[Rfam]
RNA: Small nucleolar RNA SNORA38
RNA sequence: CCCUCCUACAAAGGCGUGUCUGUGACUCCCUGUGUUUGGACACGUAAGAAUUGGAGGCAAAGAAAUGUGGACUUGGGGAAGUUCUGGGACCAGCUUGUUCCGUGCAGGCUCAGGAUCAACCAUCCCACAGAG
Number, nucleotide and partner (000 for none) at each position: 001c000002c057003c056004u055005c054006c053007u000008a000009c000010a000011a000012a000013g000014g000015c044016g043017u042018g041019u040020c039021u038022g000023u000024g030025a000026c000027u000028c000029c000030c024031u000032g000033u000034g000035u000036u000037u000038g021039g020040a019041c018042a017043c016044g015045u000046a000047a000048g000049a000050a000051u000052u000053g006054g005055a004056g003057g002058c000059a000060a000061a000062g000063a000064a000065a000066u000067g000068u000069g125070g124071a123072c000073u122074u000075g000076g000077g000078g000079a000080a000081g000082u000083u000084c000085u000086g000087g000088g000089a000090c000091c000092a110093g109094c108095u107096u106097g105098u104099u000100c000101c000102g000103u000104g098105c097106a096107g095108g094109c093110u092111c000112a000113g000114g000115a000116u000117c000118a000119a000120c000121c000122a073123u071124c070125c069126c000127a000128c000129a000130g000131a000132g000